[Rfam]
RNA sequence: UGAUCGCCAACUGGAGAGCGGCCGCCGGCGAGCGGCCCACCGAAGGGGCAAACGGCACGCGCCGUAGAAACUCUCAGGUACACAGGACAGGGGGAGGGGC
Numbered sequence: 001u002g003a004u005c006g007c008c009a010a011c012u013g014g015a016g017a018g019c020g021g022c023c024g025c026c027g028g029c030g031a032g033c034g035g036c037c038c039a040c041c042g043a044a045g046g047g048g049c050a051a052a053c054g055g056c057a058c059g060c061g062c063c064g065u066a067g068a069a070a071c072u073c074u075c076a077g078g079u080a081c082a083c084a085g086g087a088c089a090g091g092g093g094g095a096g097g098g099g100c
Base pairs, nucleotide, nucleotide: 007094008093011090012089013088020037021036022035023034039079040078041077042075043074046073047072048071
Description:
The family of this 100-nucleotide RNA sequence from Pseudomonas sp. FeS53a is "Glycine riboswitch aptamer". The match comes from Rfam's covariance-model search (48 bits). Clan: Glycine riboswitch clan. The pairing is the family consensus, mapped onto this sequence.